[Rfam]
RNA: Small nucleolar RNA SNORD97
RNA sequence: CUGCCCGAUGAUUAUAAAAAGACGCGUUAUUAAGAGGACUUAUGCUGGAGUUCUUUUUCUUCUCUCUUUUUCUGCACUUCUUUUUCUCUCUUUGGAUGUCCAGCGUCCUAUGAGCGAAGAUUAUGAGAUAUGAGGGCAA
Numbered sequence: 001c002u003g004c005c006c007g008a009u010g011a012u013u014a015u016a017a018a019a020a021g022a023c024g025c026g027u028u029a030u031u032a033a034g035a036g037g038a039c040u041u042a043u044g045c046u047g048g049a050g051u052u053c054u055u056u057u058u059c060u061u062c063u064c065u066c067u068u069u070u071u072c073u074g075c076a077c078u079u080c081u082u083u084u085u086c087u088c089u090c091u092u093u094g095g096a097u098g099u100c101c102a103g104c105g106u107c108c109u110a111u112g113a114g115c116g117a118a119g120a121u122u123a124u125g126a127g128a129u130a131u132g133a134g135g136g137c138a139a
Stems, first nucleotide, its partner, number of pairs: 002138005035054007